[Rfam]
RNA sequence: UACUACCAAACCCUAUCUCCACCUCCACGUGGUGACCGCUGGGAGCUCUUUGAUAAUGAAAAGCUGCUGACGGAGAAGG
Numbered sequence: 001u002a003c004u005a006c007c008a009a010a011c012c013c014u015a016u017c018u019c020c021a022c023c024u025c026c027a028c029g030u031g032g033u034g035a036c037c038g039c040u041g042g043g044a045g046c047u048c049u050u051u052g053a054u055a056a057u058g059a060a061a062a063g064c065u066g067c068u069g070a071c072g073g074a075g076a077a078g079g
Base pairs, nucleotide, nucleotide: 012079013078014077016075018073019072021033022032023031044065045064046063047062049060050059051058

The family of this 79-nucleotide sequence from Hermetia illucens is "drz-agam-1 ribozyme". Pairs were carried over by alignment from the consensus structure, which is taken from published work. A search with the family's covariance model found it, with a score of 42 bits. Rfam links the family to the GO term catalytic activity.